[Rfam]
RNA sequence: GGCUCUUCAUGGUCAAAUGCUCAGACUCUUAGGUGGCUGCUUAUGCACCAUGGAUGUUUGAGCAUGUGCUAUGGUGUCUG
Dot-bracket structure: ....(.((((((.((.(((((((((((((...((((.(((....)))))))))).)))))))))).)))))))).)....
Numbered sequence: 001g002g003c004u005c006u007u008c009a010u011g012g013u014c015a016a017a018u019g020c021u022c023a024g025a026c027u028c029u030u031a032g033g034u035g036g037c038u039g040c041u042u043a044u045g046c047a048c049c050a051u052g053g054a055u056g057u058u059u060g061a062g063c064a065u066g067u068g069c070u071a072u073g074g075u076g077u078c079u080g
Stems, first nucleotide, its partner, number of pairs: 005076001007074006014068002017065010027054003033051004038047003
A member of the RNA family "mir-105 microRNA precursor family" from Pipistrellus kuhlii, 80 nucleotides long. Rfam links the family to the GO terms cellular_component, molecular_function and miRNA-mediated post-transcriptional gene silencing.